[Rfam]
RNA sequence: CUCCCACCCACGUGUGUAAGGCCCCAAAGGAUCGCCAUUAAAUUUGGCACAGAUCCCUAGAAAAGUUAUCACAUAGGUGUGGGACUUGACUUUUUUAGAGAUCCGUACCAAAUUUAAUGGUGAUCCUUUGGGCUCCUACAUACAUGGGUGGGAG
Numbered sequence: 001c002u003c004c005c006a007c008c009c010a011c012g013u014g015u016g017u018a019a020g021g022c023c024c025c026a027a028a029g030g031a032u033c034g035c036c037a038u039u040a041a042a043u044u045u046g047g048c049a050c051a052g053a054u055c056c057c058u059a060g061a062a063a064a065g066u067u068a069u070c071a072c073a074u075a076g077g078u079g080u081g082g083g084a085c086u087u088g089a090c091u092u093u094u095u096u097a098g099a100g101a102u103c104c105g106u107a108c109c110a111a112a113u114u115u116a117a118u119g120g121u122g123a124u125c126c127u128u129u130g131g132g133c134u135c136c137u138a139c140a141u142a143c144a145u146g147g148g149u150g151g152g153a154g
Stems, first nucleotide, its partner, number of pairs: 002153009012143002015140004020135002023132006030125003034121014049106002052103004057098012069082005
Notes: This 154-nucleotide RNA from Amborella trichopoda belongs to the Rfam family "MIR8565 microRNA precursor family". The source organism's lineage runs through Eukaryota, Embryophyta, Spermatophyta, Amborellaceae and Amborella.